A member of the RNA family "Bacterial RNase P class A" from Limnohabitans sp. 2KL-17, 353 nucleotides long. Clan: RNaseP clan. The source organism's lineage runs through Bacteria, Pseudomonadota, Betaproteobacteria, Burkholderiales and Limnohabitans. By type it is a ribozyme. Rfam links the family to the GO terms ribonuclease P activity, dimeric ribonuclease P complex and tRNA processing.
[Rfam]
RNA sequence: GAAGCUCGCCAGACCGUCGCUGGUGCAAGACCCGAAAGGGUGCACUGGAGGAACGUCCGGACUGCACAGGACAGCGUAGGAGGCAAUGCCUCUCCACCGUGAGGUGAGGAUCAGAGCAACAGAGACGAGCCGCUUCAGUGCGGGUGAAACGGGCAAUCUCUACGCGCAGCAAUACCAAGUAGGCCUUCCUGAAGUGACGCGGUUCGCCGCGUUGUUUCUCCCUGUGGUUCCGCGGGGUGAGUUGGCGGGUAGGUAGCAUCGAGCCGGGUGGGCGACCCCCGGUCCAGAGUAAUGGCGGUCACACAACGGGCAACCGUUGUGCACAGAAUCCGGCUUAUCGGCGAGCUUCACAC
Numbered sequence: 001g002a003a004g005c006u007c008g009c010c011a012g013a014c015c016g017u018c019g020c021u022g023g024u025g026c027a028a029g030a031c032c033c034g035a036a037a038g039g040g041u042g043c044a045c046u047g048g049a050g051g052a053a054c055g056u057c058c059g060g061a062c063u064g065c066a067c068a069g070g071a072c073a074g075c076g077u078a079g080g081a082g083g084c085a086a087u088g089c090c091u092c093u094c095c096a097c098c099g100u101g102a103g104g105u106g107a108g109g110a111u112c113a114g115a116g117c118a119a120c121a122g123a124g125a126c127g128a129g130c131c132g133c134u135u136c137a138g139u140g141c142g143g144g145u146g147a148a149a150c151g152g153g154c155a156a157u158c159u160c161u162a163c164g165c166g167c168a169g170c171a172a173u174a175c176c177a178a179g180u181a182g183g184c185c186u187u188c189c190u191g192a193a194g195u196g197a198c199g200c201g202g203u204u205c206g207c208c209g210c211g212u213u214g215u216u217u218c219u220c221c222c223u224g225u226g227g228u229u230c231c232g233c234g235g236g237g238u239g240a241g242u243u244g245g246c247g248g249g250u251a252g253g254u255a256g257c258a259u260c261g262a263g264c265c266g267g268g269u270g271g272g273c274g275a276c277c278c279c280c281g282g283u284c285c286a287g288a289g290u291a292a293u294g295g296c297g298g299u300c301a302c303a304c305a306a307c308g309g310g311c312a313a314c315c316g317u318u319g320u321g322c323a324c325a326g327a328a329u330c331c332g333g334c335u336u337a338u339c340g341g342c343g344a345g346c347u348u349c350a351c352a353c
Stems, first nucleotide, its partner, number of pairs: 001349010011338001012300007020048008053336001055334001057333005062169004069230004074165005079093005094108001095106004109160002114158002116154002130143002132139002173255004183246003188241001221236005263283006270277002